Staphylococcus sRNA sau-13: a 104-nucleotide sequence from Staphylococcus haemolyticus.
A reference for the family is Abu-Qatouseh et al. (2010), "Identification of differentially expressed small non-protein-coding RNAs in Staphylococcus aureus displaying both the normal and the small-colony variant phenotype", J Mol Med (Berl).
Lineage of the source: Bacteria > Bacillati > Bacilli > Caryophanales > Staphylococcus haemolyticus.
Rfam classes the family as a small RNA.
RNA sequence: CCAGUAAUGUCGUUAGGGUGUCCUGAUUUAUCGAUAGACGCACCUUCGACCAUUAAGAAGAAACCUUUAUCAUUCUUUUCUAGUUUAGAUAAGGCACUGUUUUC
Numbered sequence: 001c002c003a004g005u006a007a008u009g010u011c012g013u014u015a016g017g018g019u020g021u022c023c024u025g026a027u028u029u030a031u032c033g034a035u036a037g038a039c040g041c042a043c044c045u046u047c048g049a050c051c052a053u054u055a056a057g058a059a060g061a062a063a064c065c066u067u068u069a070u071c072a073u074u075c076u077u078u079u080c081u082a083g084u085u086u087a088g089a090u091a092a093g094g095c096a097c098u099g100u101u102u103u104c
Stems, first nucleotide, its partner, number of pairs: 004076001006074004012050003016046002019042003026035002055070001057068004083095002